Streptococcus sRNA 10: a 138-nucleotide sequence from Streptococcus pluranimalium. Rfam classes the family as a small RNA. Lineage of the source: Bacteria > Bacillati > Lactobacillales > Streptococcaceae > Streptococcus. The match comes from Rfam's covariance-model search (66 bits).
RNA sequence: AUCAAGGGAGUAGCCGACGAUUGUUAUCUUGCUUUUGUGAGAUAUUACAGUCGUGAUUAUGUCGUCAUUUCGAAACAGUUGUUUCCGGCAUAGUCUUAAUUUGCGAGACUUGUUUAAAAAAUAAACAGGUCUUUUUCU
Numbered sequence: 001a002u003c004a005a006g007g008g009a010g011u012a013g014c015c016g017a018c019g020a021u022u023g024u025u026a027u028c029u030u031g032c033u034u035u036u037g038u039g040a041g042a043u044a045u046u047a048c049a050g051u052c053g054u055g056a057u058u059a060u061g062u063c064g065u066c067a068u069u070u071c072g073a074a075a076c077a078g079u080u081g082u083u084u085c086c087g088g089c090a091u092a093g094u095c096u097u098a099a100u101u102u103g104c105g106a107g108a109c110u111u112g113u114u115u116a117a118a119a120a121a122u123a124a125a126c127a128g129g130u131c132u133u134u135u136u137c138u
Base pairs, nucleotide, nucleotide: 005054007052008051011049055095056094057093058092059091060090061089062088063087064086067084072079105133106132107131108130109129110128111127112126113125114124115123116122

For this family Rfam cites "Novel regulatory small RNAs in Streptococcus pyogenes" (Tesorero et al., PLoS One, 2013).